The family of this 173-nucleotide RNA from Oxalicibacterium flavum is "FMN riboswitch aptamer (RFN element)". Gene Ontology term of the family: FMN binding. The literature on the family includes a 2002 paper in Nucleic Acids Res by Vitreschak et al., "Regulation of riboflavin biosynthesis and transport genes in bacteria by transcriptional and translational attenuation".

RNA sequence: UUUCGUUCUCGGGGCGGGGCGAGAUUCCCCACCGGCGGUGAUGAUGCGCAAGCAUCCAGCCCGCGAGCGCCUGACGAAGCUUCCGCCUGCUCCCGCAGGCCGCCUCGGCAGGGUCAGCAGAUCUGGUGCGAUUCCAGGGCCGACGGUCAUAGUCCGGAUGAUAGAGAACGGGA
Numbered sequence: 001u002u003u004c005g006u007u008c009u010c011g012g013g014g015c016g017g018g019g020c021g022a023g024a025u026u027c028c029c030c031a032c033c034g035g036c037g038g039u040g041a042u043g044a045u046g047c048g049c050a051a052g053c054a055u056c057c058a059g060c061c062c063g064c065g066a067g068c069g070c071c072u073g074a075c076g077a078a079g080c081u082u083c084c085g086c087c088u089g090c091u092c093c094c095g096c097a098g099g100c101c102g103c104c105u106c107g108g109c110a111g112g113g114u115c116a117g118c119a120g121a122u123c124u125g126g127u128g129c130g131a132u133u134c135c136a137g138g139g140c141c142g143a144c145g146g147u148c149a150u151a152g153u154c155c156g157g158a159u160g161a162u163a164g165a166g167a168a169c170g171g172g173a
Base pairs, nucleotide, nucleotide: 003171004170005169006168007167008166009165010164017029018028019027031153032152033142034141035064036063037062038061059140060139067118068117122138123137124136125135126134144156145155146154

The family's consensus secondary structure is taken from published work.
The source organism's lineage runs through Bacteria, Pseudomonadota, Betaproteobacteria, Burkholderiales and Oxalicibacterium.